Rfam assigns this 83-nucleotide RNA from Herpetotheres cachinnans to the family "Small nucleolar RNA SNORD45". It scores 62 bits against the family's covariance model.
RNA sequence: GGUCCGUGAUGAGUUUUGGCAUGUAUUAGCUGAGUACAACCUUGAAGAUUACCAGUUCAGCUCUAGAAUUACUCUGAGACCUG
Number, nucleotide and partner (000 for none) at each position: 001g081002g080003u079004c078005c000006g000007u000008g000009a000010u000011g000012a000013g000014u000015u000016u000017u000018g000019g000020c000021a000022u000023g000024u000025a000026u000027u000028a000029g000030c000031u000032g000033a000034g000035u000036a000037c000038a000039a000040c000041c000042u000043u000044g000045a000046a000047g000048a000049u000050u000051a000052c000053c000054a000055g000056u000057u000058c000059a000060g000061c000062u000063c000064u000065a000066g000067a000068a000069u000070u000071a000072c000073u000074c000075u000076g000077a000078g004079a003080c002081c001082u000083g000
Annotation
It is annotated as a C/D-box small nucleolar RNA. The literature on the family includes a 2001 paper in EMBO J by Huttenhofer et al., "RNomics: an experimental approach that identifies 201 candidates for novel, small, non-messenger RNAs in mouse".